[Rfam]
RNA sequence: UCUGCGGAAGGUGACUGGCGCGAAAACGUGGGAAGACCACGGGGAAGCCUUCUGGCAUAGCAAAGACCGUGCGCCUGGGUCGGACGC
Numbered sequence: 001u002c003u004g005c006g007g008a009a010g011g012u013g014a015c016u017g018g019c020g021c022g023a024a025a026a027c028g029u030g031g032g033a034a035g036a037c038c039a040c041g042g043g044g045a046a047g048c049c050u051u052c053u054g055g056c057a058u059a060g061c062a063a064a065g066a067c068c069g070u071g072c073g074c075c076u077g078g079g080u081c082g083g084a085c086g087c
Stems, first nucleotide, its partner, number of pairs: 005054008015044002017075005028040004065081004
Dot-bracket structure: ....((((((((..(([[[[[......((((.....))))..))..))))))))..........((((..]]]]]..))))......

Annotation
ZMP/ZTP riboswitch aptamer (pfl RNA motif): an 87-nucleotide sequence from Deinococcus radiodurans. NCBI's taxonomy places the organism under Bacteria, Thermotogati, Deinococcota, Deinococcaceae, Deinococcus radiodurans.